RNA sequence: GUUGAAUGAUCUUUUGCUAAAAUCACAAACGUCCUGUUUGUAACGCAAAAGUCAGCACCUCCUGUGCA
Number, nucleotide and partner (000 for none) at each position: 001g000002u000003u000004g000005a000006a000007u000008g000009a000010u000011c051012u050013u049014u048015u047016g046017c045018u000019a000020a000021a000022a000023u000024c000025a000026c040027a039028a038029a037030c036031g000032u000033c000034c000035u000036g030037u029038u028039u027040g026041u000042a000043a000044c000045g017046c016047a015048a014049a013050a012051g011052u000053c000054a000055g067056c066057a065058c064059c000060u000061c000062c000063u000064g058065u057066g056067c055068a000
Overview: Shown here is a 68-nucleotide RNA from Alteribacillus iranensis, a member of the family "Bacillaceae-1 RNA". It is annotated as a small RNA. A search with the family's covariance model found it, with a score of 59 bits. Rfam 15.1 lists 5,721 matches to the family in 247 species. NCBI's taxonomy places the organism under Bacteria, Bacillota, Bacilli, Caryophanales, Alteribacillus.